Rfam assigns this 75-nucleotide sequence from Vibrio sp. qd031 to the family "L31-Gammaproteobacteria ribosomal protein leader". The match comes from Rfam's covariance-model search (39 bits). The family's RNA type in Rfam is cis-regulatory leader. Pairs were carried over by alignment from the consensus structure, which is taken from published work.

[Rfam]
RNA sequence: CGUGUGGUGGUCAGAUUACGGGUGUUCUCAAGAGCAUUUUAGUAGAACUGAUUAGCGACGCGGCCUAACUGAGGU
Dot-bracket structure: (((((.((..((((.(.............................).))))...)).))))).............
The organism belongs to Vibrio, within Bacteria. Its Rfam clan is "Ribosomal Protein L31 Leader clan".